Notes: Rfam assigns this 46-nucleotide RNA sequence from Streptomyces sp. F-3 to the family "Guanidine-II riboswitch aptamer (mini-ykkC)". Its family is annotated with regulation of gene expression in the Gene Ontology. Rfam 15.1 lists 1,589 matches to the family in 1,229 species. Taxonomically the source falls in Streptomyces (Bacteria, Actinomycetota, Actinomycetes, Kitasatosporales).
RNA sequence: CCGGCGGGACGACCCGUCGGCAAGGUGACGAGCAGGGACGACCCUG
Numbered sequence: 001c002c003g004g005c006g007g008g009a010c011g012a013c014c015c016g017u018c019g020g021c022a023a024g025g026u027g028a029c030g031a032g033c034a035g036g037g038a039c040g041a042c043c044c045u046g
Base pairs, nucleotide, nucleotide: 001020002019003018004017005016006015007014008013033046034045035044036043037042